[Rfam]
RNA sequence: GUCCUCGCCAAAGCUGCGUUUCUUUGCUACACUCGCCAGUUAUACUGGAGUCAUCCUUGCAAAUGAGAAAUUCGGAGUAUUCUUCACUUUCAACCCGCUUCUGCACACCCAUGAAGAAGCUAGGUACUGCCCGUGAGGGCCUGGCAUGAAAAGUGUCUGCAAUCAGGCAUCAGAAACAUCGGGGGAUUGGAGGGCUUCGGAGAAAUCUUGAGUCCUCCCUUCACCCCUUGGGAGAGCCGUUGCGAAGAUUGUGUGUGUCUUUUGUUCCCUCGGGACAAGAGAUGCGACACCUAAGUGCAAUACGCAGCGUGCCUUGCGCCUUCGAAAGAGGGAGCGGGUACCAUUCGAUUCCGAUUACUCUGGCGAGGAC
Numbered sequence: 001g002u003c004c005u006c007g008c009c010a011a012a013g014c015u016g017c018g019u020u021u022c023u024u025u026g027c028u029a030c031a032c033u034c035g036c037c038a039g040u041u042a043u044a045c046u047g048g049a050g051u052c053a054u055c056c057u058u059g060c061a062a063a064u065g066a067g068a069a070a071u072u073c074g075g076a077g078u079a080u081u082c083u084u085c086a087c088u089u090u091c092a093a094c095c096c097g098c099u100u101c102u103g104c105a106c107a108c109c110c111a112u113g114a115a116g117a118a119g120c121u122a123g124g125u126a127c128u129g130c131c132c133g134u135g136a137g138g139g140c141c142u143g144g145c146a147u148g149a150a151a152a153g154u155g156u157c158u159g160c161a162a163u164c165a166g167g168c169a170u171c172a173g174a175a176a177c178a179u180c181g182g183g184g185g186a187u188u189g190g191a192g193g194g195c196u197u198c199g200g201a202g203a204a205a206u207c208u209u210g211a212g213u214c215c216u217c218c219c220u221u222c223a224c225c226c227c228u229u230g231g232g233a234g235a236g237c238c239g240u241u242g243c244g245a246a247g248a249u250u251g252u253g254u255g256u257g258u259c260u261u262u263u264g265u266u267c268c269c270u271c272g273g274g275a276c277a278a279g280a281g282a283u284g285c286g287a288c289a290c291c292u293a294a295g296u297g298c299a300a301u302a303c304g305c306a307g308c309g310u311g312c313c314u315u316g317c318g319c320c321u322u323c324g325a326a327a328g329a330g331g332g333a334g335c336g337g338g339u340a341c342c343a344u345u346c347g348a349u350u351c352c353g354a355u356u357a358c359u360c361u362g363g364c365g366a367g368g369a370c
Base pairs, nucleotide, nucleotide: 001370002369003368004367009363011361015307020302023063024062025061026060036048037047038046039045040044073353074352075351076350077349082247083246084245085244129140130139131138132137143157144156145155146154147153159243160242161241162240166238167237168236182227183225309341310340311339312338313337314336
Dot-bracket structure: ((((....(.(...[....[..((((.........(((((...)))))...........)))).........(((((....((((...........................................((((....))))..(((((.....))))).((((...(((.............((.........................................).)........))).))))))))......................................................]....].((((((.....................)))))).......))))).......).)...))))
A member of the RNA family "Nuclear RNase P" from Microsporum canis, 370 nucleotides long. The family's consensus secondary structure is taken from published work. The family's RNA type in Rfam is ribozyme. The source organism's lineage runs through Eukaryota, Opisthokonta, Onygenales, Arthrodermataceae and Microsporum canis. A search with the family's covariance model found it, with a score of 46 bits. The literature on the family includes a 1998 paper in Annu Rev Biochem by Frank and Pace, "Ribonuclease P: unity and diversity in a tRNA processing ribozyme".